[Rfam]
RNA: Small nucleolar RNA Z199
RNA sequence: GAAUCAAAUGAUGAAGAAAUACUGCAACAAAAUGAUGGAGUAAUAUCUCCGUGAUUACUAGUAUUUAAGUCUCUGAUGCUAUU
Numbered sequence: 001g002a003a004u005c006a007a008a009u010g011a012u013g014a015a016g017a018a019a020u021a022c023u024g025c026a027a028c029a030a031a032a033u034g035a036u037g038g039a040g041u042a043a044u045a046u047c048u049c050c051g052u053g054a055u056u057a058c059u060a061g062u063a064u065u066u067a068a069g070u071c072u073c074u075g076a077u078g079c080u081a082u083u
Base pairs, nucleotide, nucleotide: 001083002082004081005078006077037050038049039048040047